Overview
A member of the RNA family "G-CSF factor stem-loop destabilising element (SLDE)" from Rousettus aegyptiacus, 97 nucleotides long. A reference for the family is Putland et al. (2002), "RNA destabilization by the granulocyte colony-stimulating factor stem-loop destabilizing element involves a single stem-loop that promotes deadenylation", Mol Cell Biol. This family represents the granulocyte colony-stimulating factor stem-loop destabilising element (G-CSF SLDE). G-CSF is secreted by fibroblasts and endothelial cells in response to the inflammatory mediators interleukin-1 (IL-1) and tumour necrosis factor alpha and by activated macrophages. The synthesis of G-CSF is regulated both transcriptionally and through control of mRNA stability. Gene Ontology term of the family: nuclear-transcribed mRNA poly(A) tail shortening.
[Rfam]
RNA sequence: UCGAGGGUACCCACCUUAGGGCCCUUGGAAGCAUCAGGAAGUCUCCCACGUGGGAGACCUGACAGCCCUGUUUAAUAUUUAAACAAUGGUGUUCCCU
Numbered sequence: 001u002c003g004a005g006g007g008u009a010c011c012c013a014c015c016u017u018a019g020g021g022c023c024c025u026u027g028g029a030a031g032c033a034u035c036a037g038g039a040a041g042u043c044u045c046c047c048a049c050g051u052g053g054g055a056g057a058c059c060u061g062a063c064a065g066c067c068c069u070g071u072u073u074a075a076u077a078u079u080u081a082a083a084c085a086a087u088g089g090u091g092u093u094c095c096c097u
Stems, first nucleotide, its partner, number of pairs: 003026006010020002034062002041058007069085007
The match comes from Rfam's covariance-model search (88 bits). By type it is a cis-regulatory element. The organism belongs to Rousettus, within Eukaryota.